[Rfam]
This 42-nucleotide RNA belongs to the Rfam family "Ribosomal protein L19 leader". This family is a putative r-protein leader autoregulatory structure found in B. subtilis and other low-GC Gram-positive bacteria. It is located in the 5' untranslated regions of mRNAs encoding ribosomal protein L19 (rplS). The literature on the family includes a 1994 paper in Prog Nucleic Acid Res Mol Biol by Zengel and Lindahl, "Diverse mechanisms for regulating ribosomal protein synthesis in Escherichia coli". Pairs were carried over by alignment from the consensus structure, which was predicted with CMfinder.
RNA sequence: ACUAUGGUCCGCUGCUAUAUUUUGUCAAGGUAAGAACAUAGG
Numbered sequence: 001a002c003u004a005u006g007g008u009c010c011g012c013u014g015c016u017a018u019a020u021u022u023u024g025u026c027a028a029g030g031u032a033a034g035a036a037c038a039u040a041g042g
Stems, first nucleotide, its partner, number of pairs: 003040004008035002013032002015029002